RNA sequence: GUCGCUUUGGCGGAGUGGUUAACGCGGUGGCCUGCUAAGCCAUUUCCCUUUGGGAGCGUAGGUUCGAAUCCUACAGGCGACG
Numbered sequence: 001g002u003c004g005c006u007u008u009g010g011c012g013g014a015g016u017g018g019u020u021a022a023c024g025c026g027g028u029g030g031c032c033u034g035c036u037a038a039g040c041c042a043u044u045u046c047c048c049u050u051u052g053g054g055a056g057c058g059u060a061g062g063u064u065c066g067a068a069u070c071c072u073a074c075a076g077g078c079g080a081c082g
Base pairs, nucleotide, nucleotide: 001081002080003079004078005077006076007075010025011024012023027043028042029041030040031039058074059073060072061071062070
This 82-nucleotide sequence from Ambispora leptoticha belongs to the Rfam family "tRNA". A search with the family's covariance model found it, with a score of 63 bits. By type it is a transfer RNA.